[Rfam]
Nucleotides: 183
Base pairs, nucleotide, nucleotide: 003180004179005178006177007176008175009174010173012170013169014168015167017166018165019164033151034150035149037148038147039146040145041144042143059129060128061127063125064124068120075118077116078115079114080113081112087107088106092104094100
Number, partner (000 for none) and nucleotide at each position: 001000a002000a003180u004179c005178c006177c007176c008175u009174g010173c011000a012170g013169u014168g015167u016000u017166c018165g019164u020000c021000g022000a023000a024000g025000u026000c027000g028000u029000a030000g031000a032000u033151u034150c035149c036000u037148u038147g039146a040145a041144c042143c043000a044000a045000u046000a047000g048000u049000c050000g051000a052000g053000a054000g055000a056000c057000a058000c059129g060128g061127u062000u063125g064124c065000u066000g067000a068120c069000c070000a071000u072000c073000g074000a075118u076000g077116c078115c079114g080113c081112u082000g083000g084000u085000g086000u087107g088106a089000a090000c091000g092104c093000c094100c095000c096000c097000u098000g099000c100094g101000g102000g103000u104092g105000a106088u107087c108000c109000u110000g111000a112081a113080g114079c115078g116077g117000a118075a119000g120068g121000g122000a123000u124064g125063c126000g127061a128060c129059c130000u131000c132000c133000c134000u135000g136000a137000a138000c139000c140000c141000a142000u143042g144041g145040u146039u147038c148037a149035g150034g151033a152000u153000g154000c155000c156000c157000g158000g159000c160000g161000g162000a163000g164019a165018c166017g167015g168014c169013a170012c171000a172000g173010g174009c175008g176007g177006g178005g179004g180003g181000c182000c183000a